[Rfam]
RNA sequence: GAUAAAACAGGUUAAAAUCCUGUUCGCCGUAAGGAUAAGGUUUCCUGGGGAAGGUUCGUCCGCCCAGGGUUAGUCGGGAGCUAAGGCGAGGCCGUAAGGAGUAGUCGAUGCACAACAGGUUAAUAUUCCUGUACCGGCUUAUACAUGUUUGAUCUUCGGAGUGACGGAGAAGGUUAACCGGGCUGUCUGUUGAAUGUGGCAGUCUAAGCGCGUAGGCUUUCAGGUAGGUAAAUCCGCCUGAUGUACGGCUGAAACGUGAUGGGACCUUGAAGCUACGGCUGAUAGGGAUUCGGUGAUACCAGGCUUUCAGGAAAAGCUUCGUUGUUAGUGUAUAGGUCGCCCGUACCGCAAACCGACACAGGUAUCCGGGAUGAGUAUUCUAAGGCGCG
Numbered sequence: 001g002a003u004a005a006a007a008c009a010g011g012u013u014a015a016a017a018u019c020c021u022g023u024u025c026g027c028c029g030u031a032a033g034g035a036u037a038a039g040g041u042u043u044c045c046u047g048g049g050g051a052a053g054g055u056u057c058g059u060c061c062g063c064c065c066a067g068g069g070u071u072a073g074u075c076g077g078g079a080g081c082u083a084a085g086g087c088g089a090g091g092c093c094g095u096a097a098g099g100a101g102u103a104g105u106c107g108a109u110g111c112a113c114a115a116c117a118g119g120u121u122a123a124u125a126u127u128c129c130u131g132u133a134c135c136g137g138c139u140u141a142u143a144c145a146u147g148u149u150u151g152a153u154c155u156u157c158g159g160a161g162u163g164a165c166g167g168a169g170a171a172g173g174u175u176a177a178c179c180g181g182g183c184u185g186u187c188u189g190u191u192g193a194a195u196g197u198g199g200c201a202g203u204c205u206a207a208g209c210g211c212g213u214a215g216g217c218u219u220u221c222a223g224g225u226a227g228g229u230a231a232a233u234c235c236g237c238c239u240g241a242u243g244u245a246c247g248g249c250u251g252a253a254a255c256g257u258g259a260u261g262g263g264a265c266c267u268u269g270a271a272g273c274u275a276c277g278g279c280u281g282a283u284a285g286g287g288a289u290u291c292g293g294u295g296a297u298a299c300c301a302g303g304c305u306u307u308c309a310g311g312a313a314a315a316g317c318u319u320c321g322u323u324g325u326u327a328g329u330g331u332a333u334a335g336g337u338c339g340c341c342c343g344u345a346c347c348g349c350a351a352a353c354c355g356a357c358a359c360a361g362g363u364a365u366c367c368g369g370g371a372u373g374a375g376u377a378u379u380c381u382a383a384g385g386c387g388c389g
Stems, first nucleotide, its partner, number of pairs: 006024006025387004033367004039347002044068006053061002075343004080111002085106003089102001092099002115132005135339011154324001157321006166307004172300003177294005182203006204262002208257003215250003220241006227235002265286003353362002369381003
A member of the RNA family "Bacterial large subunit ribosomal RNA" from Pelagicoccus mobilis, 389 nucleotides of a longer RNA.
Its family is annotated with structural constituent of ribosome and ribosome in the Gene Ontology.
The match comes from Rfam's covariance-model search (2817 bits).